[Rfam]
RNA sequence: CAUCCCAUUUGAUUACCACAUUUUCUCCUAAUAAUAGAUUUUAGUGACUAUGCUUAUGGGAUAGAUUAAAGGUGCCAUGAUCUGAAGAGGGAGGAAUCUGAUCAGUAUCCUUCUAUAUGAAAUGGCUGAACAGAAAAGA
Numbered sequence: 001c002a003u004c005c006c007a008u009u010u011g012a013u014u015a016c017c018a019c020a021u022u023u024u025c026u027c028c029u030a031a032u033a034a035u036a037g038a039u040u041u042u043a044g045u046g047a048c049u050a051u052g053c054u055u056a057u058g059g060g061a062u063a064g065a066u067u068a069a070a071g072g073u074g075c076c077a078u079g080a081u082c083u084g085a086a087g088a089g090g091g092a093g094g095a096a097u098c099u100g101a102u103c104a105g106u107a108u109c110c111u112u113c114u115a116u117a118u119g120a121a122a123u124g125g126c127u128g129a130a131c132a133g134a135a136a137a138g139a
Base pairs, nucleotide, nucleotide: 004060005059006058007057017046018045019044074126075125076124077123092114093113094112095111
Description:
Shown here is a 139-nucleotide RNA sequence from Castor canadensis, a member of the family "Small nucleolar RNA SNORA29". NCBI's taxonomy places the organism under Eukaryota, Eumetazoa, Gnathostomata, Dipnotetrapodomorpha, Castor. Gene Ontology terms of the family: RNA processing and nucleolus. By type it is an H/ACA-box small nucleolar RNA. For this family Rfam cites "RNomics: an experimental approach that identifies 201 candidates for novel, small, non-messenger RNAs in mouse" (Huttenhofer et al., EMBO J, 2001). Rfam describes the family as follows. ACA29 is a member of the H/ACA class of snoRNA that guide the sites of modification of uridines to pseudouridines. The family has 26 seed sequences and 960 matches in Rfam 15.1. The family is grouped with related families in Rfam's "SNORA20 clan".